[Rfam]
RNA sequence: GCUUUUUUCCCCGCUCCUGUUGGCGUAGGCUACAGAGAAGCUUUCAGGCUCUGGGGGAAAAGAGC
Numbered sequence: 001g002c003u004u005u006u007u008u009c010c011c012c013g014c015u016c017c018u019g020u021u022g023g024c025g026u027a028g029g030c031u032a033c034a035g036a037g038a039a040g041c042u043u044u045c046a047g048g049c050u051c052u053g054g055g056g057g058a059a060a061a062g063a064g065c
Stems, first nucleotide, its partner, number of pairs: 001065004007058004012053002018046002022042003025033002
RNA: MAT2A 3'UTR stem loop A
Organism: Tinamus guttatus